[Rfam]
RNA sequence: GCGGGGGGCCGGAUGGCCGCGGGGCGCCGGCCGCGAGGCGGGCUUCCCGAGGAAAGUCCGGACUCCACGAAGAGACGGCGGCGGGUAACGCCCGCCCGGCGAGAGCCGAGGGAAAGCGCCACAGAGAGCAGACCGCCCGCACCUCGUGCGGGCAAGGGUGAAACGGUGGGGUAAGGGCCCACCGCGGCCUCGGCGACGGGGACGGCAAGGCAAGCCCCGCCGGGAGCAACGCCGAAUAGGGACCCCUCACGGGCGCUUCGGCCCGGGGUCCGGGUAGGCGGCUCGAGCGCCCCGGCGACGGGUGCGCCAGAGGAAUGGUCAUCGCCCCGUCGCCGGAAGGUGGCGGGGAACAGAAUCCGGCUUACAAGCCCCCCGCGCAC
Numbered sequence: 001g002c003g004g005g006g007g008g009c010c011g012g013a014u015g016g017c018c019g020c021g022g023g024g025c026g027c028c029g030g031c032c033g034c035g036a037g038g039c040g041g042g043c044u045u046c047c048c049g050a051g052g053a054a055a056g057u058c059c060g061g062a063c064u065c066c067a068c069g070a071a072g073a074g075a076c077g078g079c080g081g082c083g084g085g086u087a088a089c090g091c092c093c094g095c096c097c098g099g100c101g102a103g104a105g106c107c108g109a110g111g112g113a114a115a116g117c118g119c120c121a122c123a124g125a126g127a128g129c130a131g132a133c134c135g136c137c138c139g140c141a142c143c144u145c146g147u148g149c150g151g152g153c154a155a156g157g158g159u160g161a162a163a164c165g166g167u168g169g170g171g172u173a174a175g176g177g178c179c180c181a182c183c184g185c186g187g188c189c190u191c192g193g194c195g196a197c198g199g200g201g202a203c204g205g206c207a208a209g210g211c212a213a214g215c216c217c218c219g220c221c222g223g224g225a226g227c228a229a230c231g232c233c234g235a236a237u238a239g240g241g242a243c244c245c246c247u248c249a250c251g252g253g254c255g256c257u258u259c260g261g262c263c264c265g266g267g268g269u270c271c272g273g274g275u276a277g278g279c280g281g282c283u284c285g286a287g288c289g290c291c292c293c294g295g296c297g298a299c300g301g302g303u304g305c306g307c308c309a310g311a312g313g314a315a316u317g318g319u320c321a322u323c324g325c326c327c328c329g330u331c332g333c334c335g336g337a338a339g340g341u342g343g344c345g346g347g348g349a350a351c352a353g354a355a356u357c358c359g360g361c362u363u364a365c366a367a368g369c370c371c372c373c374c375g376c377g378c379a380c
Stems, first nucleotide, its partner, number of pairs: 001376009011365001012323007020049005026043003054363003058360005063226004072258003076222005081095005096110001097108004111217002116215002118211003133157002135153008165183006184206001185204002188201005230280004240271006250265005287307004291302004
Record summary:
The family of this 380-nucleotide sequence from Hasllibacter halocynthiae is "Bacterial RNase P class A". The organism belongs to Hasllibacter, within Bacteria. By type it is a ribozyme.